[Rfam]
About this RNA
U2 spliceosomal RNA: a 190-nucleotide RNA from Capsicum annuum. The match comes from Rfam's covariance-model search (86 bits). The family's RNA type in Rfam is spliceosomal small nuclear RNA. From the family's description: U2 is a small nuclear RNA (snRNA) component of the spliceosome (involved in pre-mRNA splicing). Complementary binding between U2 snRNA (in an area lying towards the 5' end but 3' to hairpin I) and the branchpoint sequence (BPS) of the intron results the bulging out of an unpaired adenosine, on the BPS, which initiates a nucleophilic attack at the intronic 5' splice site, thus starting the first of two transesterification reactions that mediate splicing.

RNA sequence: ACCGCCAGUUGCAUUAGAAAAACGGCUAGAGUAUCUGUUCUUAUCAGUUUAAUAACGGUUAUGUGGACCAUUGGUUCACACGAUAUUAACUCUAUUUUUUGAGGGGGAUGGCUCAUCAAGGUAGCUUGCUGCCUGGGCCUUCAAGCGUCGCCUAAGCGUUGCAUUACUGUUUUGGCCUGGUGCACCCCAC
Numbered sequence: 001a002c003c004g005c006c007a008g009u010u011g012c013a014u015u016a017g018a019a020a021a022a023c024g025g026c027u028a029g030a031g032u033a034u035c036u037g038u039u040c041u042u043a044u045c046a047g048u049u050u051a052a053u054a055a056c057g058g059u060u061a062u063g064u065g066g067a068c069c070a071u072u073g074g075u076u077c078a079c080a081c082g083a084u085a086u087u088a089a090c091u092c093u094a095u096u097u098u099u100u101g102a103g104g105g106g107g108a109u110g111g112c113u114c115a116u117c118a119a120g121g122u123a124g125c126u127u128g129c130u131g132c133c134u135g136g137g138c139c140u141u142c143a144a145g146c147g148u149c150g151c152c153u154a155a156g157c158g159u160u161g162c163a164u165u166a167c168u169g170u171u172u173u174g175g176c177c178u179g180g181u182g183c184a185c186c187c188c189a190c
Base pairs, nucleotide, nucleotide: 006024042061043060045058047056063079064078065077066076067075068074069073107142108141110139111138112137113136114135121132122131123130124129145183146182147181148180149179150178152174154172155171156170157169